[Rfam]
The family of this 138-nucleotide RNA sequence from Pongo abelii is "U4 spliceosomal RNA". The family is grouped with related families in Rfam's "U4 clan". A search with the family's covariance model found it, with a score of 63 bits. Rfam describes the family as follows. U4 small nuclear RNA (U4 snRNA) is a component of the major U2-dependent spliceosome. Taxonomically the source falls in Pongo (Eukaryota, Bilateria, Theria, Eutheria). Rfam links the family to the GO terms spliceosomal tri-snRNP complex assembly and U4 snRNP. Pairs were carried over by alignment from the consensus structure, which is taken from published work.
RNA sequence: AGCUUUGCACCUUGGCAGUAUUAUAGCUAGAGGUUUAUUCAAGAAGUGAUUAUUGUUAAUUGAAAACUUUCCCGAUACCUCACCAUGAUGACCUGUAAUAUAGUCAACAUUGGCAAUUUUUGAUAUUAUCCACAGAAA
Number, nucleotide and partner (000 for none) at each position: 001a000002g000003c000004u000005u000006u000007g000008c000009a000010c000011c000012u000013u000014g000015g000016c000017a000018g000019u000020a050021u049022u048023a047024u046025a000026g000027c000028u043029a000030g000031a000032g040033g039034u000035u000036u000037a000038u000039u033040c032041a000042a000043g028044a000045a000046g024047u023048g022049a021050u020051u000052a000053u000054u000055g000056u000057u000058a000059a000060u000061u000062g000063a000064a000065a000066a000067c000068u000069u000070u000071c000072c000073c000074g000075a000076u000077a000078c000079c000080u000081c000082a000083c113084c112085a110086u109087g108088a000089u106090g105091a104092c103093c000094u000095g000096u000097a000098a000099u000100a000101u000102a000103g092104u091105c090106a089107a000108c087109a086110u085111u000112g084113g083114c000115a000116a000117u000118u000119u000120u000121u000122g000123a000124u000125a000126u000127u138128a000129u136130c135131c000132a000133c000134a000135g130136a129137a000138a127